[Rfam]
RNA sequence: UGCCGCAUUAAUUAUCGAUUGUUAAACUCAACAGUUAACACAUACCGAGAAAGCUACAUGCUUGCAAAAGCAGGCCCCAACCUUCGGGUUGUUUCGACACAGGGGAAACUUGACCAAGCAGGCACUCAAAUCCUGUCAUUCAGGAGUUUAAAAUUCCAUUAAUUAGUGCGGUUUUUUUA
Numbered sequence: 001u002g003c004c005g006c007a008u009u010a011a012u013u014a015u016c017g018a019u020u021g022u023u024a025a026a027c028u029c030a031a032c033a034g035u036u037a038a039c040a041c042a043u044a045c046c047g048a049g050a051a052a053g054c055u056a057c058a059u060g061c062u063u064g065c066a067a068a069a070g071c072a073g074g075c076c077c078c079a080a081c082c083u084u085c086g087g088g089u090u091g092u093u094u095c096g097a098c099a100c101a102g103g104g105g106a107a108a109c110u111u112g113a114c115c116a117a118g119c120a121g122g123c124a125c126u127c128a129a130a131u132c133c134u135g136u137c138a139u140u141c142a143g144g145a146g147u148u149u150a151a152a153a154u155u156c157c158a159u160u161a162a163u164u165a166g167u168g169c170g171g172u173u174u175u176u177u178u179a
Stems, first nucleotide, its partner, number of pairs: 053123003059120006068111002075105004080089003090099003

Shown here is a 179-nucleotide RNA sequence from Ancylomarina longa, a member of the family "Bacteroidales-1 6S-Bacteroidales RNA suggested".
About the family: Bacteroidales-1 was first reported in a comparative genomics-based approach of genome and metagenome sequences from Weinberg et al. 2010 In a high-resolution transcriptome map study of Bacteroides thetaiotaomicron, Ryan et al. 2020 report this sRNA as 6S RNA homologue of Bacteroides, in the study they obtain evidence of small product RNAs (pRNAs) related to 6S function.
The match comes from Rfam's covariance-model search (88 bits).
NCBI's taxonomy places the organism under Bacteria, Bacteroidia, Marinilabiliales, Marinifilaceae, Ancylomarina.
The base pairs follow the family's consensus structure, which is taken from published work.